Description
The family of this 74-nucleotide RNA from Monodelphis domestica is "mir-551 microRNA precursor family". The family's consensus secondary structure was predicted with RNAalifold. Rfam's curators put it in the seed alignment. The organism belongs to Monodelphis, within Eukaryota.
[Rfam]
RNA sequence: UGACCCUGGAAAUCCAGAAGGGGUGGAGCCUGUUGGACAGUUUCUAGGCGACCCAUUCUUGGUUUCAAGGGUUG
Numbered sequence: 001u002g003a004c005c006c007u008g009g010a011a012a013u014c015c016a017g018a019a020g021g022g023g024u025g026g027a028g029c030c031u032g033u034u035g036g037a038c039a040g041u042u043u044c045u046a047g048g049c050g051a052c053c054c055a056u057u058c059u060u061g062g063u064u065u066c067a068a069g070g071g072u073u074g
Stems, first nucleotide, its partner, number of pairs: 002073006009066006016059002021054004028049004